RNA sequence: UAACCUCUGGCAAGUGAGGGGAAUCAUACCUUUGUGAAUGUUG
Numbered sequence: 001u002a003a004c005c006u007c008u009g010g011c012a013a014g015u016g017a018g019g020g021g022a023a024u025c026a027u028a029c030c031u032u033u034g035u036g037a038a039u040g041u042u043g
Base pairs, nucleotide, nucleotide: 001043002042003041004040008038010035011034012033013032
L19-Flavobacteria ribosomal protein leader: a 43-nucleotide RNA sequence from Saimiri boliviensis. Rfam classes the family as a cis-regulatory leader. For this family Rfam cites "Discovery of 20 novel ribosomal leader candidates in bacteria and archaea" (Eckert and Weinberg, BMC Microbiol, 2020). The base pairs follow the family's consensus structure, which is taken from published work. NCBI's taxonomy places the organism under Eukaryota, Vertebrata, Eutheria, Saimiri, Saimiri boliviensis.